The family of this 71-nucleotide RNA sequence from Lemur catta is "mir-17 microRNA precursor family". NCBI's taxonomy places the organism under Eukaryota, Metazoa, Dipnotetrapodomorpha, Theria, Lemur. Rfam links the family to the GO terms miRNA-mediated post-transcriptional gene silencing and RISC complex. Rfam describes the family as follows. This family represents the microRNA (miRNA) precursor mir-17, family, which includes mir-20, mir-91, and mir-103. miRNAs are transcribed as ~70nt precursors (modelled here) and subsequently processed by the Dicer enzyme to give a ~22nt product. In this case the mature sequence comes from the 3' arm of the precursor. The extents of the hairpin precursors are not generally known and are estimated based on hairpin prediction. The literature on the family includes a 2025 paper in J Mol Biol by Liu et al., "Structural Features Within Precursor microRNA-20a Regulate Dicer-TRBP Processing".
RNA sequence: GUAGCACUAAAGUGCUUAUAGUGCAGGUAGUGUUUAGUUAUCUACUGCAUCAUGAGCACUUAAAGUACUGC
Numbered sequence: 001g002u003a004g005c006a007c008u009a010a011a012g013u014g015c016u017u018a019u020a021g022u023g024c025a026g027g028u029a030g031u032g033u034u035u036a037g038u039u040a041u042c043u044a045c046u047g048c049a050u051c052a053u054g055a056g057c058a059c060u061u062a063a064a065g066u067a068c069u070g071c
Stems, first nucleotide, its partner, number of pairs: 001071004006066003010061010021050004026046005